[Rfam]
RNA sequence: AUGCAUUCUUAUAAACCCCCCAGUUGCUGUUUUUUUAGCUUUUGGGACAAGCAAGAAUGCCAGAUAAAAAUCUGGAAUCAUCCAAAGUGGAGGGUCUGAUUUCCUGUGACCCUUUGCUAUUUCACCUCCAGAACAUAC
Numbered sequence: 001a002u003g004c005a006u007u008c009u010u011a012u013a014a015a016c017c018c019c020c021c022a023g024u025u026g027c028u029g030u031u032u033u034u035u036u037a038g039c040u041u042u043u044g045g046g047a048c049a050a051g052c053a054a055g056a057a058u059g060c061c062a063g064a065u066a067a068a069a070a071u072c073u074g075g076a077a078u079c080a081u082c083c084a085a086a087g088u089g090g091a092g093g094g095u096c097u098g099a100u101u102u103c104c105u106g107u108g109a110c111c112c113u114u115u116g117c118u119a120u121u122u123c124a125c126c127u128c129c130a131g132a133a134c135a136u137a138c
Stems, first nucleotide, its partner, number of pairs: 003060004010051001012050001019046005026039002065137002071132006086118007094110002101106001
This 138-nucleotide sequence from Chanos chanos belongs to the Rfam family "Small nucleolar RNA SNORA14". Gene Ontology terms of the family: nucleolus and RNA processing. The base pairs follow the family's consensus structure, which was predicted with RNAfold.